[Rfam]
RNA sequence: CUUGAACAAAGCCACAGCCGUCGCGAGGCGGUGUCGGAAAGCCACGGGUCUCACGGAGAGACAGCCGGGCCGCCUGC
Numbered sequence: 001c002u003u004g005a006a007c008a009a010a011g012c013c014a015c016a017g018c019c020g021u022c023g024c025g026a027g028g029c030g031g032u033g034u035c036g037g038a039a040a041g042c043c044a045c046g047g048g049u050c051u052c053a054c055g056g057a058g059a060g061a062c063a064g065c066c067g068g069g070c071c072g073c074c075u076g077c
Base pairs, nucleotide, nucleotide: 012037013036017032018031019030020029021028022027041070042069043068045067046066047065048062049061050060051059052058